[Rfam]
RNA sequence: GGUCUAUGCCACGUCGUCGGUAGCUAUAGAAAAGGCAAUGACCGGCGAUGCUAUGAAUAGACCGAGAUCAAUUCCAUGUUUCGCUUGCUGAUAGGAACCUGUGGAUCUGAUUUUCAGUUGGUCCCCGGAGCCGUUUUCGGCGAUUACAUCU
Numbered sequence: 001g002g003u004c005u006a007u008g009c010c011a012c013g014u015c016g017u018c019g020g021u022a023g024c025u026a027u028a029g030a031a032a033a034g035g036c037a038a039u040g041a042c043c044g045g046c047g048a049u050g051c052u053a054u055g056a057a058u059a060g061a062c063c064g065a066g067a068u069c070a071a072u073u074c075c076a077u078g079u080u081u082c083g084c085u086u087g088c089u090g091a092u093a094g095g096a097a098c099c100u101g102u103g104g105a106u107c108u109g110a111u112u113u114u115c116a117g118u119u120g121g122u123c124c125c126c127g128g129a130g131c132c133g134u135u136u137u138c139g140g141c142g143a144u145u146a147c148a149u150c151u
Stems, first nucleotide, its partner, number of pairs: 002062005007056001008054001012050006019043003023036003081143005094132002099128003103124005
RNA: Small nucleolar RNA snoR2/U65
Organism: Turnera subulata